[Rfam]
Nucleotides: 100
Base pairs, nucleotide, nucleotide: 001099002098003097004096005095006094007093010024011023012022013021026070027069028068029067030066076092077091078090079089080088
Number, partner (000 for none) and nucleotide at each position: 001099g002098u003097u004096c005095c006094u007093c008000u009000g010024g011023c012022g013021u014000a015000a016000u017000g018000g019000c020000a021013a022012c023011g024010c025000g026070u027069u028068c029067g030066g031000c032000u033000u034000c035000u036000a037000u038000u039000c040000g041000u042000g043000u044000u045000c046000u047000a048000c049000c050000g051000u052000c053000c054000a055000a056000c057000g058000g059000g060000u061000a062000g063000g064000g065000a066030c067029c068028g069027a070026a071000a072000g073000a074000u075000u076092c077091u078090c079089g080088g081000u082000u083000c084000g085000a086000g087000u088080c089079c090078g091077g092076g093007g094006a095005g096004g097003a098002a099001c100000g
Shown here is a 100-nucleotide sequence from Rasamsonia emersonii, a member of the family "tRNA". Rfam links the family to the GO term triplet codon-amino acid adaptor activity. It is annotated as a transfer RNA. The family has 954 seed sequences and 5,335,975 matches in Rfam 15.1. About the family: Transfer RNA (tRNA) molecules are approximately 80 nucleotides in length. Pairs were carried over by alignment from the consensus structure, which is taken from published work.